A member of the RNA family "Ribosomal S15 leader" from Pseudoalteromonas xiamenensis, 120 nucleotides long. From the family's description: The E. coli Ribosomal S15 gene 5' UTR can form two alternative structures. One that is a series of three hairpins, The other includes a pseudoknot. This structure causes translational regulation of the S15 protein. The alignment of this family contains only the final two hairpins which are conserved in other species, and also includes the complete region that forms the alternate structures. A reference for the family is Benard et al. (1996), "Pseudoknot and translational control in the expression of the S15 ribosomal protein", Biochimie. The source organism's lineage runs through Bacteria, Pseudomonadota, Gammaproteobacteria, Alteromonadales and Pseudoalteromonas.
RNA sequence: UGCUUUGGCUGAAUUAGUGAUCGGCUAAAGCGUGUUAUACACCAUAAAUUUUUGGAGUUUAUUAUGUCACUAAGCAAUCAAGAAAAAGCAGCAAUCGUUGCAAAAUUCGCACGCGCUGAA
Numbered sequence: 001u002g003c004u005u006u007g008g009c010u011g012a013a014u015u016a017g018u019g020a021u022c023g024g025c026u027a028a029a030g031c032g033u034g035u036u037a038u039a040c041a042c043c044a045u046a047a048a049u050u051u052u053u054g055g056a057g058u059u060u061a062u063u064a065u066g067u068c069a070c071u072a073a074g075c076a077a078u079c080a081a082g083a084a085a086a087a088g089c090a091g092c093a094a095u096c097g098u099u100g101c102a103a104a105a106u107u108c109g110c111a112c113g114c115g116c117u118g119a120a
Base pairs, nucleotide, nucleotide: 007026008025009024010023011022012021051074052073053072054071055070057068